[Rfam]
This 87-nucleotide sequence belongs to the Rfam family "c-di-GMP-II-GAG riboswitch aptamer". Rfam's curators put it in the seed alignment. Pairs were carried over by alignment from the consensus structure, which is taken from published work. Gene Ontology terms of the family: regulation of gene expression and cyclic-di-GMP binding.
RNA sequence: UGGCGGGGCAGAGGCCAAGAACCACGUCCCGCACCGACGGGCACUGAAGGGGCGUGGGGGAGCCAGUGGUGCGACCGGCUACCGCUA
Numbered sequence: 001u002g003g004c005g006g007g008g009c010a011g012a013g014g015c016c017a018a019g020a021a022c023c024a025c026g027u028c029c030c031g032c033a034c035c036g037a038c039g040g041g042c043a044c045u046g047a048a049g050g051g052g053c054g055u056g057g058g059g060g061a062g063c064c065a066g067u068g069g070u071g072c073g074a075c076c077g078g079c080u081a082c083c084g085c086u087a
Base pairs, nucleotide, nucleotide: 005085007083008082010080011079013064014063015062022058023057025054026053027052028051029050039076040075041072042071043070044069045068